Mason-Pfizer monkey virus packaging signal: a 276-nucleotide RNA from Sciurus carolinensis. Rfam links the family to the GO term viral genome packaging. The match comes from Rfam's covariance-model search (166 bits). The family's RNA type in Rfam is cis-regulatory element. The family's consensus secondary structure was predicted with PFOLD. NCBI's taxonomy places the organism under Eukaryota, Opisthokonta, Bilateria, Teleostomi, Sciurus.
RNA sequence: UGGUGCCCAACAUGGGACCCGGAUAUGGGGGAAUUCAUGAGGGAAGAGGCGUUUGAUCGUUUGGCUGAACAAAGCAGAAGUCAGUUUGACAAAGAUGGCCACGGGAGCCUGCCACACCCCUCUUAACUGUACAGUAGUGCCUAAUUAUGGGACAAGAAUUAAGUAAGCAUAAAGUUUUUGUUAAGCAAUUAAAAGAAGCUUUAAAGACAAGGGGAGUAAAGGUUAAGAGUAAUGAUCUUUUUACGUUUUUUGACCUUAUUAAGGACGCCUGUCCGU
Numbered sequence: 001u002g003g004u005g006c007c008c009a010a011c012a013u014g015g016g017a018c019c020c021g022g023a024u025a026u027g028g029g030g031g032a033a034u035u036c037a038u039g040a041g042g043g044a045a046g047a048g049g050c051g052u053u054u055g056a057u058c059g060u061u062u063g064g065c066u067g068a069a070c071a072a073a074g075c076a077g078a079a080g081u082c083a084g085u086u087u088g089a090c091a092a093a094g095a096u097g098g099c100c101a102c103g104g105g106a107g108c109c110u111g112c113c114a115c116a117c118c119c120c121u122c123u124u125a126a127c128u129g130u131a132c133a134g135u136a137g138u139g140c141c142u143a144a145u146u147a148u149g150g151g152a153c154a155a156g157a158a159u160u161a162a163g164u165a166a167g168c169a170u171a172a173a174g175u176u177u178u179u180g181u182u183a184a185g186c187a188a189u190u191a192a193a194a195g196a197a198g199c200u201u202u203a204a205a206g207a208c209a210a211g212g213g214g215a216g217u218a219a220a221g222g223u224u225a226a227g228a229g230u231a232a233u234g235a236u237c238u239u240u241u242u243a244c245g246u247u248u249u250u251u252g253a254c255c256u257u258a259u260u261a262a263g264g265a266c267g268c269c270u271g272u273c274c275g276u
Stems, first nucleotide, its partner, number of pairs: 006031003012026003036046001038044001082129005095121001097119001103113002135155001137153002140151004160203003163199002211251007220238006261276001263274004